[Rfam]
RNA sequence: CGGUCCUGCUGGUUAAGCGUCCCACCCAAGUCGUGGAUGCCCGCGGGAUCAGUCGAGCUUGAUGUCGCUGACCACGGAUGUACUGGCAGGACAAAAGAUCGACGCUGAGAAGGUCGGUGCGUUUGCUCGCCCGGCCUUUUCGUUU
Numbered sequence: 001c002g003g004u005c006c007u008g009c010u011g012g013u014u015a016a017g018c019g020u021c022c023c024a025c026c027c028a029a030g031u032c033g034u035g036g037a038u039g040c041c042c043g044c045g046g047g048a049u050c051a052g053u054c055g056a057g058c059u060u061g062a063u064g065u066c067g068c069u070g071a072c073c074a075c076g077g078a079u080g081u082a083c084u085g086g087c088a089g090g091a092c093a094a095a096a097g098a099u100c101g102a103c104g105c106u107g108a109g110a111a112g113g114u115c116g117g118u119g120c121g122u123u124u125g126c127u128c129g130c131c132c133g134g135c136c137u138u139u140u141c142g143u144u145u
Base pairs, nucleotide, nucleotide: 003049004048005047006046007045008044009043017040018039019038020037021036052103053102054101055100056099059098060097063093064092065091066090069088070087072086073085074084104144106142107141108140109139110138111137112136113135114134115133116132117131119128121126
A member of the RNA family "Alphaproteobacterial sRNA ar35" from Rhizobium subbaraonis, 145 nucleotides long.
For this family Rfam cites "A survey of sRNA families in alpha-proteobacteria" (del Val et al., RNA Biol, 2012).